Trypanosomatid snoRNA TB10Cs5H2: an 80-nucleotide RNA from Leishmania braziliensis. The base pairs follow the family's consensus structure, which was predicted with WAR. The literature on the family includes a 2008 paper in BMC Bioinformatics by Myslyuk et al., "Psiscan: a computational approach to identify H/ACA-like and AGA-like non-coding RNA in trypanosomatid genomes". The source organism's lineage runs through Eukaryota, Kinetoplastea, Trypanosomatida, Viannia and Leishmania braziliensis.
RNA sequence: GGAGCCCAUCUCGUCUGUGUUCUGUGCGAGAGAGGUUUGCCCUCUCUCCUGUGCGCUUUACACUGUAUCGAUGGGCAAGA
Number, nucleotide and partner (000 for none) at each position: 001g000002g000003a000004g076005c075006c074007c073008a072009u071010c000011u000012c000013g000014u000015c000016u000017g063018u062019g061020u000021u000022c000023u055024g000025u000026g000027c000028g000029a000030g000031a000032g000033a000034g000035g000036u000037u000038u000039g000040c000041c000042c000043u000044c000045u000046c000047u000048c000049c000050u000051g000052u000053g000054c000055g023056c000057u000058u000059u000060a000061c019062a018063c017064u000065g000066u000067a000068u000069c000070g000071a009072u008073g007074g006075g005076c004077a000078a000079g000080a000